RNA: Proteo-phage-1 RNA
Organism: Alicycliphilus denitrificans
RNA sequence: CCCGUGCCGGUGCGGGGGCGAAAGCCGCAGACCGGACGCGCCUUAGUCGGUGAGUGGCGCGGCGACAACGAACCCCGACAGCC
Numbered sequence: 001c002c003c004g005u006g007c008c009g010g011u012g013c014g015g016g017g018g019c020g021a022a023a024g025c026c027g028c029a030g031a032c033c034g035g036a037c038g039c040g041c042c043u044u045a046g047u048c049g050g051u052g053a054g055u056g057g058c059g060c061g062g063c064g065a066c067a068a069c070g071a072a073c074c075c076c077g078a079c080a081g082c083c
Stems, first nucleotide, its partner, number of pairs: 001016004007035005017026003037061005046079005